[Rfam]
RNA sequence: GUGUCUUUAUCGCUUAAUUUCAAGUUUGAAAGCGGGGGAACCAUUCUGUUAUCCAUUGAUAGCAUGGGGUGAAUCCUAAAGGUUUUAGGUAGGGCUACUCUCUAGCCCGAAUCCGUCAGCUAACCUCGUAAGCGUAUGGAGAGAGGCGCC
Numbered sequence: 001g002u003g004u005c006u007u008u009a010u011c012g013c014u015u016a017a018u019u020u021c022a023a024g025u026u027u028g029a030a031a032g033c034g035g036g037g038g039a040a041c042c043a044u045u046c047u048g049u050u051a052u053c054c055a056u057u058g059a060u061a062g063c064a065u066g067g068g069g070u071g072a073a074u075c076c077u078a079a080a081g082g083u084u085u086u087a088g089g090u091a092g093g094g095c096u097a098c099u100c101u102c103u104a105g106c107c108c109g110a111a112u113c114c115g116u117c118a119g120c121u122a123a124c125c126u127c128g129u130a131a132g133c134g135u136a137u138g139g140a141g142a143g144a145g146g147c148g149c150c
Stems, first nucleotide, its partner, number of pairs: 011134004018031003032129006042066002067114003075089004092108004
RNA: c-di-AMP riboswitch aptamer (ydaO/yuaA leader)